A member of the RNA family "c-di-AMP riboswitch aptamer (ydaO/yuaA leader)" from Streptomyces sp. ISL-94, 178 nucleotides long. Its family is annotated with cyclic-di-AMP binding and regulation of gene expression in the Gene Ontology. Lineage of the source: Bacteria > Bacillati > Kitasatosporales > Streptomycetaceae > Streptomyces. Pairs were carried over by alignment from the consensus structure.

RNA sequence: GAACCGCACCCGACUAUUCACGCGCGCGGCAGGAGCGGGGGAACCAGGUAAGCCGCCGAUCCGGAUCUCCGAAUCCGGGACGGCUCGGGGUGAAGUCGUACAUGGUCCGUUCGUGGACGACCGGACAUCUCCAGUCCGAACCCGACAGCUCACCUCGCAGGCGCCGGAGAGGAAUUCG
Numbered sequence: 001g002a003a004c005c006g007c008a009c010c011c012g013a014c015u016a017u018u019c020a021c022g023c024g025c026g027c028g029g030c031a032g033g034a035g036c037g038g039g040g041g042a043a044c045c046a047g048g049u050a051a052g053c054c055g056c057c058g059a060u061c062c063g064g065a066u067c068u069c070c071g072a073a074u075c076c077g078g079g080a081c082g083g084c085u086c087g088g089g090g091u092g093a094a095g096u097c098g099u100a101c102a103u104g105g106u107c108c109g110u111u112c113g114u115g116g117a118c119g120a121c122c123g124g125a126c127a128u129c130u131c132c133a134g135u136c137c138g139a140a141c142c143c144g145a146c147a148g149c150u151c152a153c154c155u156c157g158c159a160g161g162c163g164c165c166g167g168a169g170a171g172g173a174a175u176u177c178g
Base pairs, nucleotide, nucleotide: 005032035158036157037156038155039154040153045087088143089142090141096120097119098118099117123137124136125135126134